RNA sequence: AGACUGGAAAAUCUCUGCAGGCAAAUGUGAUGUCACUGAAGAAUCACACACUUACCUGUAAAGAUUCUGCAGUCU
Numbered sequence: 001a002g003a004c005u006g007g008a009a010a011a012u013c014u015c016u017g018c019a020g021g022c023a024a025a026u027g028u029g030a031u032g033u034c035a036c037u038g039a040a041g042a043a044u045c046a047c048a049c050a051c052u053u054a055c056c057u058g059u060a061a062a063g064a065u066u067c068u069g070c071a072g073u074c075u
Stems, first nucleotide, its partner, number of pairs: 003073004010066005016060002020057002023053002026050004

A member of the RNA family "mir-216 microRNA precursor family" from Cavia porcellus, 75 nucleotides long.
Its Rfam clan is "mir-216 clan".
The literature on the family includes a 2008 paper in Gene by Shao et al., "Identification of novel chicken microRNAs and analysis of their genomic organization".
The base pairs follow the family's consensus structure, which was predicted with WAR.
Rfam 15.1 lists 1,667 matches to the family in 655 species.
Its family is annotated with miRNA-mediated post-transcriptional gene silencing and RISC complex in the Gene Ontology.